[Rfam]
RNA: Plant signal recognition particle RNA
RNA sequence: GCCGGGCUUGGCAACGCGAGCCUGUAACCCGUGUGGGGGCUUCAAAGUGAUGGGACGCUGGCAUAUUCCAUCCAGGUCGGGCUCCCAGAUGGCUUAUACUGUCCCGCCCGCUCCAAGUCAAGAGAUGAGGCAUGUAAUCUGGGCGAAGGCCCUCGGGUCACGUGUUUCCUAGAGGUUGGGGGCAAAGCGUGAGGCUGGUUUCACAGAGCAGCGACAACCCCCCGCUCCUGACGGUGGGGGGAUAGCGGGUCAGUGCAUCUGUGACCCAAUAAAGACCCGGUGGAUUUGACCUGGCUGGACCCUCAUUUUU
Numbered sequence: 001g002c003c004g005g006g007c008u009u010g011g012c013a014a015c016g017c018g019a020g021c022c023u024g025u026a027a028c029c030c031g032u033g034u035g036g037g038g039g040c041u042u043c044a045a046a047g048u049g050a051u052g053g054g055a056c057g058c059u060g061g062c063a064u065a066u067u068c069c070a071u072c073c074a075g076g077u078c079g080g081g082c083u084c085c086c087a088g089a090u091g092g093c094u095u096a097u098a099c100u101g102u103c104c105c106g107c108c109c110g111c112u113c114c115a116a117g118u119c120a121a122g123a124g125a126u127g128a129g130g131c132a133u134g135u136a137a138u139c140u141g142g143g144c145g146a147a148g149g150c151c152c153u154c155g156g157g158u159c160a161c162g163u164g165u166u167u168c169c170u171a172g173a174g175g176u177u178g179g180g181g182g183c184a185a186a187g188c189g190u191g192a193g194g195c196u197g198g199u200u201u202c203a204c205a206g207a208g209c210a211g212c213g214a215c216a217a218c219c220c221c222c223c224g225c226u227c228c229u230g231a232c233g234g235u236g237g238g239g240g241g242a243u244a245g246c247g248g249g250u251c252a253g254u255g256c257a258u259c260u261g262u263g264a265c266c267c268a269a270u271a272a273a274g275a276c277c278c279g280g281u282g283g284a285u286u287u288g289a290c291c292u293g294g295c296u297g298g299a300c301c302c303u304c305a306u307u308u309u310u
Stems, first nucleotide, its partner, number of pairs: 001040003004023007028037003044309007052301002056297002058294003062288002065285002068283005075277004080267002083264002086261002089258003093255001099253003103249005108241002111239005117232004122227003127168009137158005142151003169174001178221004188213003195206003